The family of this 71-nucleotide RNA sequence from Amazona guildingii is "ctgf/hcs24 CAESAR". Gene Ontology term of the family: negative regulation of gene expression. Pairs were carried over by alignment from the consensus structure, which is taken from published work. For this family Rfam cites "Identification of an RNA element that confers post-transcriptional repression of connective tissue growth factor/hypertrophic chondrocyte specific 24 (ctgf/hcs24) gene: similarities to retroviral RNA-protein interactions" (Kubota et al., Oncogene, 2000). Rfam's curators write: The 3' UTR of human connective tissue growth factor/hypertrophic chondrocyte specific 24 (ctgf/hcs24) mRNA has been shown to repress ctgf gene expression. Reference identified a minimal RNA element, predicted to form a stable secondary structure, which acts as a post-transcriptional cis-acting element of structure-anchored repression (CAESAR), probably through direct interactions with as yet unknown nuclear factors.

RNA sequence: AUGGAGACAUGGCAUAAAGCCAGGAGACGCUAACUAAAUUCCCAACUUGAACUUAAUCUGCAUCUCAGUUU
Numbered sequence: 001a002u003g004g005a006g007a008c009a010u011g012g013c014a015u016a017a018a019g020c021c022a023g024g025a026g027a028c029g030c031u032a033a034c035u036a037a038a039u040u041c042c043c044a045a046c047u048u049g050a051a052c053u054u055a056a057u058c059u060g061c062a063u064c065u066c067a068g069u070u071u
Stems, first nucleotide, its partner, number of pairs: 004066004010022004023058001